[Rfam]
RNA sequence: GUAUUUUAUGUUGUACGAGCUUUAUAGUGUAAUUCUGGCAUUAACCUACUUUCAACGCUACUAUGUAAUUCGUGCAUUACUGCUAGUCAACAUGUAUAAUAUAUA
Numbered sequence: 001g002u003a004u005u006u007u008a009u010g011u012u013g014u015a016c017g018a019g020c021u022u023u024a025u026a027g028u029g030u031a032a033u034u035c036u037g038g039c040a041u042u043a044a045c046c047u048a049c050u051u052u053c054a055a056c057g058c059u060a061c062u063a064u065g066u067a068a069u070u071c072g073u074g075c076a077u078u079a080c081u082g083c084u085a086g087u088c089a090a091c092a093u094g095u096a097u098a099a100u101a102u103a104u105a
Base pairs, nucleotide, nucleotide: 005096007094008093009092010091011090013087018081019080023037024036026034027033028032038058039057041054043052044051063077064076065075066074067073

Notes: Mitochondrial DNA control region secondary structure A: a 105-nucleotide sequence from Cercocebus atys. By type it is an antisense RNA. Pairs were carried over by alignment from the consensus structure, which is taken from published work. It scores 68 bits against the family's covariance model. On this family, see Pereira et al., Mol Biol Evol 2008: "Evidence for variable selective pressures at a large secondary structure of the human mitochondrial DNA control region". Lineage of the source: Eukaryota > Eumetazoa > Eutheria > Cercopithecidae > Cercocebus.